[Rfam]
RNA sequence: UAAGGUUUCUUGCUUUACCUAAGAGCAAGUGGUGCGGAUGGGUUACGACCCCGCCCUGUUUCUUGCUUCAGGUAAAAGGAGCAAGUGGCGAGCCUGUAG
Numbered sequence: 001u002a003a004g005g006u007u008u009c010u011u012g013c014u015u016u017a018c019c020u021a022a023g024a025g026c027a028a029g030u031g032g033u034g035c036g037g038a039u040g041g042g043u044u045a046c047g048a049c050c051c052c053g054c055c056c057u058g059u060u061u062c063u064u065g066c067u068u069c070a071g072g073u074a075a076a077a078g079g080a081g082c083a084a085g086u087g088g089c090g091a092g093c094c095u096g097u098a099g
Base pairs, nucleotide, nucleotide: 009029010028011027012026013025014024016023039053040052041051042050055072056071057070058069062085063084064083065082066081067080